This 80-nucleotide RNA sequence from Microcebus murinus belongs to the Rfam family "Small nucleolar RNA U105B". Its family is annotated with RNA processing and nucleolus in the Gene Ontology. The family's RNA type in Rfam is C/D-box small nucleolar RNA. Its Rfam clan is "SNORD105 clan". A reference for the family is Yang et al. (2006), "snoSeeker: an advanced computational package for screening of guide and orphan snoRNA genes in the human genome", Nucleic Acids Res. The family's consensus secondary structure was predicted with WAR.
[Rfam]
RNA sequence: CCCAGUGCGGCUGAUGACAGCACUUCCGCUGAGGCUCUGUGAUUGCUCAGUCUCAAAGUAAACGCCCUGACGCGCCCUGG
Numbered sequence: 001c002c003c004a005g006u007g008c009g010g011c012u013g014a015u016g017a018c019a020g021c022a023c024u025u026c027c028g029c030u031g032a033g034g035c036u037c038u039g040u041g042a043u044u045g046c047u048c049a050g051u052c053u054c055a056a057a058g059u060a061a062a063c064g065c066c067c068u069g070a071c072g073c074g075c076c077c078u079g080g
Base pairs, nucleotide, nucleotide: 005075006074007073008072009071010021011020012019013018029050030049031048032047033046